[Rfam]
The record is a 90-nucleotide RNA sequence from Austropuccinia psidii, which matches "Small nucleolar RNA Z266" in Rfam.
RNA sequence: UGAUUUCAGGAAUGAAAAAUUAAAUAGAUGGAUGAAGUCAGAAUUUGAAGUGAAAAGCUUGAGGCAAAUCCACUAGAAAACUUGAAUUCC
Numbered sequence: 001u002g003a004u005u006u007c008a009g010g011a012a013u014g015a016a017a018a019a020u021u022a023a024a025u026a027g028a029u030g031g032a033u034g035a036a037g038u039c040a041g042a043a044u045u046u047g048a049a050g051u052g053a054a055a056a057g058c059u060u061g062a063g064g065c066a067a068a069u070c071c072a073c074u075a076g077a078a079a080a081c082u083u084g085a086a087u088u089c090c
Stems, first nucleotide, its partner, number of pairs: 002089002005086006
Annotation: Lineage of the source: Eukaryota > Pucciniomycotina > Pucciniales > Sphaerophragmiaceae > Austropuccinia psidii. It scores 46 bits against the family's covariance model. The literature on the family includes a 2003 paper in Nucleic Acids Res by Chen et al., "The high diversity of snoRNAs in plants: identification and comparative study of 120 snoRNA genes from Oryza sativa".